Rfam assigns this 80-nucleotide RNA sequence from Paenibacillus sp. TCA20 to the family "ZMP/ZTP riboswitch aptamer (pfl RNA motif)". It scores 53 bits against the family's covariance model. On this family, see Jones and Ferre-D'Amare, Nat Struct Mol Biol 2015: "Recognition of the bacterial alarmone ZMP through long-distance association of two RNA subdomains". Lineage of the source: Bacteria > Bacilli > Caryophanales > Paenibacillaceae > Paenibacillus.
RNA sequence: AUCGUCGCAUGUAACUGGCGUACACGGUGAACCGUGAGGGAGCAUGUGAUUAGAUAUAGCCGUACGCCUGGGCAGAGGUA
Numbered sequence: 001a002u003c004g005u006c007g008c009a010u011g012u013a014a015c016u017g018g019c020g021u022a023c024a025c026g027g028u029g030a031a032c033c034g035u036g037a038g039g040g041a042g043c044a045u046g047u048g049a050u051u052a053g054a055u056a057u058a059g060c061c062g063u064a065c066g067c068c069u070g071g072g073c074a075g076a077g078g079u080a
Base pairs, nucleotide, nucleotide: 004050005049006048007047008046009045010044011043012042015039016038017068018067019066020065021064024035025034026033027032057075059073060072061071